[Rfam]
Nucleotides: 108
Stems, first nucleotide, its partner, number of pairs: 006080005015032001017030005033058003038054003041050003082092003
Number, partner (000 for none) and nucleotide at each position: 001000a002000a003000u004000c005000u006080g007079c008078a009077u010076c011000a012000a013000g014000a015032g016000u017030c018029g019028g020027g021026c022000c023000g024000g025000c026021g027020c028019c029018c030017g031000g032015c033058a034057c035056c036000a037000a038054c039053c040052u041050g042049c043048u044000c045000c046000c047000g048043g049042g050041c051000a052040a053039g054038g055000u056035g057034g058033u059000g060000c061000c062000u063000c064000c065000g066000u067000c068000a069000c070000a071000g072000g073000a074000g075000g076010g077009a078008u079007g080006u081000g082092g083091c084090c085000u086000g087000a088000c089000c090084g091083g092082c093000a094000a095000c096000a097000a098000a099000c100000g101000g102000g103000a104000a105000a106000a107000g108000c
Description: A member of the RNA family "SAM-I/IV (S-adenosyl methionine) riboswitch aptamer" from Azorhizobium caulinodans, 108 nucleotides long. The base pairs follow the family's consensus structure, which is taken from published work. A search with the family's covariance model found it, with a score of 51 bits. A reference for the family is Weinberg et al. (2008), "The aptamer core of SAM-IV riboswitches mimics the ligand-binding site of SAM-I riboswitches", RNA.